The family of this 137-nucleotide RNA sequence from [Mannheimia] succiniciproducens is "Haemophilus regulatory RNA responsive to iron". The match comes from Rfam's covariance-model search (81 bits).
RNA sequence: CCAUCUGUUAAGAGUACGAUUAAAGAUAAUUUGGUAGGUUAUAGUUAGUCGGCAUAGAUAGCUCCGAACAGGUAGAGUAGAAAGUAAAUUCGUUAGGGUACUAAAAAGGCCGGAGUGGUAAAACACCGGCCUUUUUU
Numbered sequence: 001c002c003a004u005c006u007g008u009u010a011a012g013a014g015u016a017c018g019a020u021u022a023a024a025g026a027u028a029a030u031u032u033g034g035u036a037g038g039u040u041a042u043a044g045u046u047a048g049u050c051g052g053c054a055u056a057g058a059u060a061g062c063u064c065c066g067a068a069c070a071g072g073u074a075g076a077g078u079a080g081a082a083a084g085u086a087a088a089u090u091c092g093u094u095a096g097g098g099u100a101c102u103a104a105a106a107a108g109g110c111c112g113g114a115g116u117g118g119u120a121a122a123a124c125a126c127c128g129g130c131c132u133u134u135u136u137u
Stems, first nucleotide, its partner, number of pairs: 003073006088099004103136011115124001
Dot-bracket structure: ..((((((...........................................................))))))..............((((....))))...(((((((((((.(........).))))))))))).

Lineage of the source: Bacteria > Pseudomonadota > Pasteurellales > Pasteurellaceae > [Mannheimia] succiniciproducens. Its family is annotated with positive regulation of translation, ncRNA-mediated and response to iron ion in the Gene Ontology. Pairs were carried over by alignment from the consensus structure, which was predicted with CMfinder.